[Rfam]
RNA sequence: AUCGGACCGACUUGGAAACAACUCGAGACGAAGAAAAGAGAGAAAGAUAGGUUAGAGAACGAAAGGUGAAAGCUCUAGAGGGAAGCUAGCAAAAAGAACUCUAGACCACCAAGGCAGAAAGAGAAACCUGCCAAGGAGCUAAACAGAAUCUCGGUUUAGACACUUUCGAACUCGAACUAAGA
Number, nucleotide and partner (000 for none) at each position: 001a048002u047003c046004g000005g000006a000007c000008c000009g000010a000011c038012u037013u036014g000015g000016a000017a000018a000019c000020a000021a000022c000023u000024c000025g000026a000027g000028a000029c000030g000031a000032a000033g000034a000035a000036a013037a012038g011039a000040g000041a000042g000043a000044a000045a000046g003047a002048u001049a000050g000051g000052u000053u000054a000055g000056a000057g000058a000059a000060c168061g167062a166063a165064a164065g163066g000067u000068g000069a000070a000071a000072g000073c000074u105075c104076u103077a102078g101079a100080g099081g000082g000083a000084a000085g000086c000087u000088a000089g000090c000091a000092a000093a000094a000095a000096g000097a000098a000099c080100u079101c078102u077103a076104g075105a074106c000107c000108a000109c000110c000111a000112a000113g132114g131115c130116a129117g128118a000119a000120a000121g152122a151123g150124a149125a000126a000127c000128c117129u116130g115131c114132c113133a000134a000135g000136g000137a000138g000139c159140u158141a157142a156143a155144c154145a000146g000147a000148a000149u124150c123151u122152c121153g000154g144155u143156u142157u141158a140159g139160a000161c000162a000163c065164u064165u063166u062167c061168g060169a000170a000171c000172u000173c000174g000175a000176a000177c000178u000179a000180a000181g000182a000
RNA: IMES-1 RNA motif